[Rfam]
RNA sequence: UGCUCUACAUAUAGGUGUAGAGGAACGGGAUUGUUGUCAAGCCCUCCAGUAAGAUUCCAAUGAGGAAUUCCUGG
Numbered sequence: 001u002g003c004u005c006u007a008c009a010u011a012u013a014g015g016u017g018u019a020g021a022g023g024a025a026c027g028g029g030a031u032u033g034u035u036g037u038c039a040a041g042c043c044c045u046c047c048a049g050u051a052a053g054a055u056u057c058c059a060a061u062g063a064g065g066a067a068u069u070c071c072u073g074g
Base pairs, nucleotide, nucleotide: 003022004021005020006019007018008017009016010015053069054068055067056066057065058064
RNA: RT-6 RNA